[Rfam]
RNA sequence: GGCCUGGGCAGCCUUGUAUUCCUGGUUCUUCCCAGAGUUGGGAAAAGCUGGGUGGAGAGGGCGAGGAAGGGAAAAA
Numbered sequence: 001g002g003c004c005u006g007g008g009c010a011g012c013c014u015u016g017u018a019u020u021c022c023u024g025g026u027u028c029u030u031c032c033c034a035g036a037g038u039u040g041g042g043a044a045a046a047g048c049u050g051g052g053u054g055g056a057g058a059g060g061g062c063g064a065g066g067a068a069g070g071g072a073a074a075a076a
Stems, first nucleotide, its partner, number of pairs: 014059002017056001021052005029044006
Dot-bracket structure: .............((.(...(((((...((((((....))))))...)))))...).)).................